[Rfam]
Rfam assigns this 102-nucleotide RNA sequence from Domibacillus epiphyticus to the family "Purine riboswitch aptamer". Riboswitches are metabolite binding domains within certain messenger RNAs that serve as precision sensors for their corresponding targets. Allosteric rearrangement of mRNA structure is mediated by ligand binding, and this results in modulation of gene expression. A class of riboswitches that selectively recognises guanine and becomes saturated at concentrations as low as 5 nM. In Bacillus subtilis, this mRNA motif is located on at least five separate transcriptional units that together encode 17 genes that are mostly involved in purine transport and purine nucleotide biosynthesis. It has also been shown that some members of this family are specific for adenine instead. Hence this family are termed purine riboswitches. The organism belongs to Domibacillus, within Bacteria.
RNA sequence: ACAUUAUUUUUCACGUUGUAUCGUAUAUCGUCGAGAAUAAGGCUUGACAGUUUCUACCGGGCUGCCGUAAAUGGUCCGACUACGAAUGAGUGGAAAGGGAAU
Numbered sequence: 001a002c003a004u005u006a007u008u009u010u011u012c013a014c015g016u017u018g019u020a021u022c023g024u025a026u027a028u029c030g031u032c033g034a035g036a037a038u039a040a041g042g043c044u045u046g047a048c049a050g051u052u053u054c055u056a057c058c059g060g061g062c063u064g065c066c067g068u069a070a071a072u073g074g075u076c077c078g079a080c081u082a083c084g085a086a087u088g089a090g091u092g093g094a095a096a097g098g099g100a101a102u
Base pairs, nucleotide, nucleotide: 021085022084023083024082025081030048031047032046033045034044035043058078059077060076061075062074063073064072